[Rfam]
RNA sequence: ACCUGAUAAAGCCAAACUCCGAGCAAUUGGGGGGUCGGAAAGCCACGGGUCUCAUUUUAGGUUAAACCGUUAAUUUGUCGAGUCGUUAACCUGAGACAGCCGGGUUGCCUUG
Numbered sequence: 001a002c003c004u005g006a007u008a009a010a011g012c013c014a015a016a017c018u019c020c021g022a023g024c025a026a027u028u029g030g031g032g033g034g035u036c037g038g039a040a041a042g043c044c045a046c047g048g049g050u051c052u053c054a055u056u057u058u059a060g061g062u063u064a065a066a067c068c069g070u071u072a073a074u075u076u077g078u079c080g081a082g083u084c085g086u087u088a089a090c091c092u093g094a095g096a097c098a099g100c101c102g103g104g105u106u107g108c109c110u111u112g
Stems, first nucleotide, its partner, number of pairs: 012038002017032006041106004046102003049097006